[Rfam]
RNA sequence: GAUGACCACAAGGGGAGCAUUAAAGCUGAGAGUGAGCGGUUUCGUUCUGACCCUUUGAACCUGUUAGUUAACGCUGGCGUAGGGAUGUGGCAAAUGCAAUAG
Numbered sequence: 001g002a003u004g005a006c007c008a009c010a011a012g013g014g015g016a017g018c019a020u021u022a023a024a025g026c027u028g029a030g031a032g033u034g035a036g037c038g039g040u041u042u043c044g045u046u047c048u049g050a051c052c053c054u055u056u057g058a059a060c061c062u063g064u065u066a067g068u069u070a071a072c073g074c075u076g077g078c079g080u081a082g083g084g085a086u087g088u089g090g091c092a093a094a095u096g097c098a099a100u101a102g
Stems, first nucleotide, its partner, number of pairs: 006090005011054004016048001017026002034047004060083004065076003
RNA: TPP riboswitch aptamer (THI element)